[Rfam]
RNA sequence: CAGCGGGACACCCUUCCCCAACGAAGGGCAUUUUAUCUGUAAGGAUACACAUA
Numbered sequence: 001c002a003g004c005g006g007g008a009c010a011c012c013c014u015u016c017c018c019c020a021a022c023g024a025a026g027g028g029c030a031u032u033u034u035a036u037c038u039g040u041a042a043g044g045a046u047a048c049a050c051a052u053a
Stems, first nucleotide, its partner, number of pairs: 011028006034047005
serC leader: a 53-nucleotide sequence from Paramylibacter kogurei. The match comes from Rfam's covariance-model search (66 bits). The base pairs follow the family's consensus structure. By type it is a cis-regulatory leader. The literature on the family includes a 2005 paper in Genome Biol by Corbino et al., "Evidence for a second class of S-adenosylmethionine riboswitches and other regulatory RNA motifs in alpha-proteobacteria". Rfam's curators write: This family is a putative regulatory RNA structure that is found upstream of the serC-serA operon in some alpha-proteobacteria. The final stem of the structure overlaps the ribosome binding site of the serC reading frame.